[Rfam]
RNA sequence: AUUCGUUAGAUGAGUGUAAGGCGUUGGAUUGAUUUCAUUCAAUCCGAGACCCGCAUUCAUCAGGGGUUCGU
Numbered sequence: 001a002u003u004c005g006u007u008a009g010a011u012g013a014g015u016g017u018a019a020g021g022c023g024u025u026g027g028a029u030u031g032a033u034u035u036c037a038u039u040c041a042a043u044c045c046g047a048g049a050c051c052c053g054c055a056u057u058c059a060u061c062a063g064g065g066g067u068u069c070g071u
Stems, first nucleotide, its partner, number of pairs: 004066001006064002009061009020050001022048001024047009
This 71-nucleotide RNA sequence from Nicotiana attenuata belongs to the Rfam family "MIR6151 microRNA precursor family". The organism belongs to Nicotiana, within Eukaryota. Pairs were carried over by alignment from the consensus structure, which was predicted with RNAalifold.